[Rfam]
RNA sequence: AAUGAAAGAAUGACAAAUCAGAUUUUUCCUCCUGAUUUCCUGAUUUUUAGCUUUUUUCUCCUAAUAAAAUUAAAUCUAACUAAAAAUGCUAAAAAUCAUGAGGAAAAAUAUGAUUUGUCAUUCUCCCAUU
Numbered sequence: 001a002a003u004g005a006a007a008g009a010a011u012g013a014c015a016a017a018u019c020a021g022a023u024u025u026u027u028c029c030u031c032c033u034g035a036u037u038u039c040c041u042g043a044u045u046u047u048u049a050g051c052u053u054u055u056u057u058c059u060c061c062u063a064a065u066a067a068a069a070u071u072a073a074a075u076c077u078a079a080c081u082a083a084a085a086a087u088g089c090u091a092a093a094a095a096u097c098a099u100g101a102g103g104a105a106a107a108a109u110a111u112g113a114u115u116u117g118u119c120a121u122u123c124u125c126c127c128a129u130u
Stems, first nucleotide, its partner, number of pairs: 001130004007124014022109006037102003041098007049090002053086004
Rfam assigns this 130-nucleotide RNA sequence from Gossypium stocksii to the family "MIR7504 microRNA precursor family". Rfam 15.1 lists 7,343 matches to the family in 61 species. The match comes from Rfam's covariance-model search (92 bits). Pairs were carried over by alignment from the consensus structure, which was predicted with RNAalifold.